[Rfam]
RNA: Small nucleolar RNA SNORD16
RNA sequence: UGCUGUGAUGCCGUAAUUUGCGCCUUACUCUGCACUCAGCGACAGUUGCCUGCUGUCACAAGGCUGUUGCAGAAGGCUGAUGACCAACUAACUCUGAGCA
Numbered sequence: 001u002g003c004u005g006u007g008a009u010g011c012c013g014u015a016a017u018u019u020g021c022g023c024c025u026u027a028c029u030c031u032g033c034a035c036u037c038a039g040c041g042a043c044a045g046u047u048g049c050c051u052g053c054u055g056u057c058a059c060a061a062g063g064c065u066g067u068u069g070c071a072g073a074a075g076g077c078u079g080a081u082g083a084c085c086a087a088c089u090a091a092c093u094c095u096g097a098g099c100a
Base pairs, nucleotide, nucleotide: 001100002099003098021082022081024079030072031071032070033069034068039064040063041057042056043055044054045053